RNA sequence: UGUCAAGAGUCGGUAGCCGUCGUUUUGGCGGGAAGAUUUCUUUUGCCUGAAAGAAGGUGAAGGAAAAAUG
Dot-bracket structure: .........((..(...((((.((((...(.(.(((.....))).).)...)))))))))..))......
Numbered sequence: 001u002g003u004c005a006a007g008a009g010u011c012g013g014u015a016g017c018c019g020u021c022g023u024u025u026u027g028g029c030g031g032g033a034a035g036a037u038u039u040c041u042u043u044u045g046c047c048u049g050a051a052a053g054a055a056g057g058u059g060a061a062g063g064a065a066a067a068a069u070g
Stems, first nucleotide, its partner, number of pairs: 010064002014060001018059004023055004030048001032046001034044003
A member of the RNA family "S-element" from Borborobacter arsenicus, 70 nucleotides long. The family has 29 seed sequences and 231 matches in Rfam 15.1. From the family's description: This family represents a group of S-elements from p42d and related plasmids. The S-element has multiple functions and is believed to act as a negative regulator of repC transcription, be required for efficient replication and act as a translational enhancer of repC. Gene Ontology terms of the family: translation regulator activity and mRNA transcription. A reference for the family is Venkova-Canova et al. (2004), "Two discrete elements are required for the replication of a repABC plasmid: an antisense RNA and a stem-loop structure", Mol Microbiol.